transfer-messenger RNA: a 353-nucleotide sequence from Clostridium fallax.
NCBI's taxonomy places the organism under Bacteria, Bacillati, Bacillota, Clostridiaceae, Clostridium.

[Rfam]
RNA sequence: GGGGGCGUUAUGGCUUCGACGGGGGUAAGAUGGGUUUGAUAAGCGAGUGGAGUGAAGCAUGGGUACUCCUUAAUCAAGUAUGCACUAAAUAUAAACGCAGAAGAUAAUUUUGCAUUAGCUGCUUAAUGCAGCUCGUUCUACCUAAGAGUCCUACGGCUUAGGAUAGGGCGUCGAUUAGUAGGGAACCGAGUCUUGCAAAGCUUUGAGCAAGAAACGGAAUAAAUGAAGCUACUAAAGCAAGUAGCCUGUCUAUGGGCGACUUGUGGAGGGAAUGAUUAAAAUAUAGACUGCACUCGGAGAAAGUCAGGCUGGUCUACUUUCGGACAGGGGUUCGAUACCCCUCGCCUCCACCA
Numbered sequence: 001g002g003g004g005g006c007g008u009u010a011u012g013g014c015u016u017c018g019a020c021g022g023g024g025g026u027a028a029g030a031u032g033g034g035u036u037u038g039a040u041a042a043g044c045g046a047g048u049g050g051a052g053u054g055a056a057g058c059a060u061g062g063g064u065a066c067u068c069c070u071u072a073a074u075c076a077a078g079u080a081u082g083c084a085c086u087a088a089a090u091a092u093a094a095a096c097g098c099a100g101a102a103g104a105u106a107a108u109u110u111u112g113c114a115u116u117a118g119c120u121g122c123u124u125a126a127u128g129c130a131g132c133u134c135g136u137u138c139u140a141c142c143u144a145a146g147a148g149u150c151c152u153a154c155g156g157c158u159u160a161g162g163a164u165a166g167g168g169c170g171u172c173g174a175u176u177a178g179u180a181g182g183g184a185a186c187c188g189a190g191u192c193u194u195g196c197a198a199a200g201c202u203u204u205g206a207g208c209a210a211g212a213a214a215c216g217g218a219a220u221a222a223a224u225g226a227a228g229c230u231a232c233u234a235a236a237g238c239a240a241g242u243a244g245c246c247u248g249u250c251u252a253u254g255g256g257c258g259a260c261u262u263g264u265g266g267a268g269g270g271a272a273u274g275a276u277u278a279a280a281a282u283a284u285a286g287a288c289u290g291c292a293c294u295c296g297g298a299g300a301a302a303g304u305c306a307g308g309c310u311g312g313u314c315u316a317c318u319u320u321c322g323g324a325c326a327g328g329g330g331u332u333c334g335a336u337a338c339c340c341c342u343c344g345c346c347u348c349c350a351c352c353a
Stems, first nucleotide, its partner, number of pairs: 001349007020322008029313001031312001033310008044296005049069005057083005117133006134170006141162006149183006186217003191212004199230006232269002237264005244257003248288004252282002326342005
Dot-bracket structure: (((((((............((((((((.(.(.((((((((...((((((((((...[[[[[...))))).........]]]]].................................((((((.....))))))((((((.((((((..[[[[[[..))))))..)))))).......]]]]]]..[[[..[[[[....((((((....]]]]..]]].......)))))).((...(((((..(((.[[[[[[.)))..)))))...))...........]]..]]]]...)))))......)))))))).)).))))))))...(((((.......))))))))))))....